[Rfam]
RNA sequence: UGUUAGGCUUGACCGGGGAGCUUGGCGUGCCCUGUACCUGCAAUCGUCACAGCAGGGGCGACUGAGAGGGGCGGCGAAGCGGAAGCGGUAGGCCCACAAAGCGACUAUGAGACUUUGUCCUACAGAGUCGGAGUACCCAAUUGGACUGACCGGAGGGCCGGUUCGGUUGGGCUAAUCGGGGAGAACGGGUCAGGCCCUGACGGGAGCAGCCUCACUCCGAACUACUGACGUUUGCGGGGAAGCAGAGUUGAGGAACGAUGUGGCUAACCUAUCUGUGGAUGCGACGUCCACCUUCUUGAGCCUAACA
Numbered sequence: 001u002g003u004u005a006g007g008c009u010u011g012a013c014c015g016g017g018g019a020g021c022u023u024g025g026c027g028u029g030c031c032c033u034g035u036a037c038c039u040g041c042a043a044u045c046g047u048c049a050c051a052g053c054a055g056g057g058g059c060g061a062c063u064g065a066g067a068g069g070g071g072c073g074g075c076g077a078a079g080c081g082g083a084a085g086c087g088g089u090a091g092g093c094c095c096a097c098a099a100a101g102c103g104a105c106u107a108u109g110a111g112a113c114u115u116u117g118u119c120c121u122a123c124a125g126a127g128u129c130g131g132a133g134u135a136c137c138c139a140a141u142u143g144g145a146c147u148g149a150c151c152g153g154a155g156g157g158c159c160g161g162u163u164c165g166g167u168u169g170g171g172c173u174a175a176u177c178g179g180g181g182a183g184a185a186c187g188g189g190u191c192a193g194g195c196c197c198u199g200a201c202g203g204g205a206g207c208a209g210c211c212u213c214a215c216u217c218c219g220a221a222c223u224a225c226u227g228a229c230g231u232u233u234g235c236g237g238g239g240a241a242g243c244a245g246a247g248u249u250g251a252g253g254a255a256c257g258a259u260g261u262g263g264c265u266a267a268c269c270u271a272u273c274u275g276u277g278g279a280u281g282c283g284a285c286g287u288c289c290a291c292c293u294u295c296u297u298g299a300g301c302c303u304a305a306c307a
Base pairs, nucleotide, nucleotide: 001307002306003305004304005303006302007301008300009299010061013058014057015033016032017031018030020028021027037056038055039054040053041052063298064297065296066295067294068293069292070291073288074287075286076285079282080281081280087273088272089271090270091269092265094263095262096261097260098259101256105252106251111249112248113247114246115245116244117243118242119238120237121236123234124233125232126231127229128228129227130226131225132223133222136171137170138169139168140167141166142165143164144163145162146161147160148159150157151156176220177219178218179217180216181215187212188211189210190209195204196203197202
Archaeal signal recognition particle RNA: a 307-nucleotide RNA from Methanomethylophilus alvi. The family's consensus secondary structure is taken from published work. The family's RNA type in Rfam is non-coding RNA gene.